[Rfam]
Nucleotides: 043
Base pairs, nucleotide, nucleotide: 003041004040005039006038007037008036009035013033014032015030016029017028018027
Number, partner (000 for none) and nucleotide at each position: 001000a002000c003041g004040g005039u006038g007037u008036u009035c010000c011000g012000c013033u014032g015030c016029c017028g018027c019000c020000g021000a022000u023000a024000u025000g026000c027018g028017c029016g030015g031000g032014u033013a034000u035009g036008a037007g038006c039005a040004u041003u042000u043000g